Shown here is a 35-nucleotide RNA sequence from Sphingobacterium sp. 21, a member of the family "DUF805b RNA". Rfam classes the family as a cis-regulatory element. Taxonomically the source falls in Sphingobacterium (Bacteria, Sphingobacteriia, Sphingobacteriales, Sphingobacteriaceae). Pairs were carried over by alignment from the consensus structure, which is taken from published work.

RNA sequence: UCAGGGGAUGCCGAAAACCUUAAAAAGAGUAGGUG
Numbered sequence: 001u002c003a004g005g006g007g008a009u010g011c012c013g014a015a016a017a018c019c020u021u022a023a024a025a026a027g028a029g030u031a032g033g034u035g
Stems, first nucleotide, its partner, number of pairs: 003020003010034003